Overview:
This 446-nucleotide part of an RNA from Jaapia argillacea belongs to the Rfam family "Eukaryotic large subunit ribosomal RNA". The family's consensus secondary structure is taken from published work. Lineage of the source: Eukaryota > Dikarya > Agaricomycetes > Jaapia > Jaapia argillacea. The family has 88 seed sequences and 107,465 matches in Rfam 15.1.
RNA sequence: CUUUAGUCCCUCGGAAUUUGAGGCUAGAGGUGCCAGAAAAGUUAAUGGAUAGCUUUUAAGAGCAGACUAAAAGUGUUCUGCUAGUGGGCCCACCCCGCUAACGGUGAGGGGUGGUCACCUGCGAGACUGUCAAAUUGCGGGAAGUUCCUUAGAGCCUCUGCUACCGCCUCUACAUGGAAACAUAGUAGUGUGCACCAGGGUAAUGACCUCGGGUAUGGUAAAAACGCAGGGGAUUGGAUAAUCCGCAGCCAAGUCCUAAGGGUUCUAUCGGACCUAUGGAUGCAGUUCAACGACUAAAUGGCAGUCGGUUCCAGAGGCUCAAAUGCUCUGGGGCUUAAGAUAGAGUCUGGCCGCCCAGAAAUGGGUCCUGGGGAUAAAAGGCUUAACCAGCCCAGAGCCUCAGGGUGUCUGAUUUGUGAUUGAAGCUCACUGUCAUGGCAUGGAGU
Numbered sequence: 001c002u003u004u005a006g007u008c009c010c011u012c013g014g015a016a017u018u019u020g021a022g023g024c025u026a027g028a029g030g031u032g033c034c035a036g037a038a039a040a041g042u043u044a045a046u047g048g049a050u051a052g053c054u055u056u057u058a059a060g061a062g063c064a065g066a067c068u069a070a071a072a073g074u075g076u077u078c079u080g081c082u083a084g085u086g087g088g089c090c091c092a093c094c095c096c097g098c099u100a101a102c103g104g105u106g107a108g109g110g111g112u113g114g115u116c117a118c119c120u121g122c123g124a125g126a127c128u129g130u131c132a133a134a135u136u137g138c139g140g141g142a143a144g145u146u147c148c149u150u151a152g153a154g155c156c157u158c159u160g161c162u163a164c165c166g167c168c169u170c171u172a173c174a175u176g177g178a179a180a181c182a183u184a185g186u187a188g189u190g191u192g193c194a195c196c197a198g199g200g201u202a203a204u205g206a207c208c209u210c211g212g213g214u215a216u217g218g219u220a221a222a223a224a225c226g227c228a229g230g231g232g233a234u235u236g237g238a239u240a241a242u243c244c245g246c247a248g249c250c251a252a253g254u255c256c257u258a259a260g261g262g263u264u265c266u267a268u269c270g271g272a273c274c275u276a277u278g279g280a281u282g283c284a285g286u287u288c289a290a291c292g293a294c295u296a297a298a299u300g301g302c303a304g305u306c307g308g309u310u311c312c313a314g315a316g317g318c319u320c321a322a323a324u325g326c327u328c329u330g331g332g333g334c335u336u337a338a339g340a341u342a343g344a345g346u347c348u349g350g351c352c353g354c355c356c357a358g359a360a361a362u363g364g365g366u367c368c369u370g371g372g373g374a375u376a377a378a379a380g381g382c383u384u385a386a387c388c389a390g391c392c393c394a395g396a397g398c399c400u401c402a403g404g405g406u407g408u409c410u411g412a413u414u415u416g417u418g419a420u421u422g423a424a425g426c427u428c429a430c431u432g433u434c435a436u437g438g439c440a441u442g443g444a445g446u
Stems, first nucleotide, its partner, number of pairs: 001445005010438002